[Rfam]
RNA sequence: UUCCGAUAAUGGCAAACCUGUCGAAAGGCAGGGACGCAAAGCUACGGAUCUAAGGCAUUUUUGCUAUGAUGGCCGAGCCGCCAAU
Numbered sequence: 001u002u003c004c005g006a007u008a009a010u011g012g013c014a015a016a017c018c019u020g021u022c023g024a025a026a027g028g029c030a031g032g033g034a035c036g037c038a039a040a041g042c043u044a045c046g047g048a049u050c051u052a053a054g055g056c057a058u059u060u061u062u063g064c065u066a067u068g069a070u071g072g073c074c075g076a077g078c079c080g081c082c083a084a085u
Stems, first nucleotide, its partner, number of pairs: 012037002017032006041078003045075003048070003055064003

This 85-nucleotide RNA from Cytobacillus depressus belongs to the Rfam family "c-di-GMP-I riboswitch aptamer".
NCBI's taxonomy places the organism under Bacteria, Bacillati, Bacillota, Bacilli, Cytobacillus.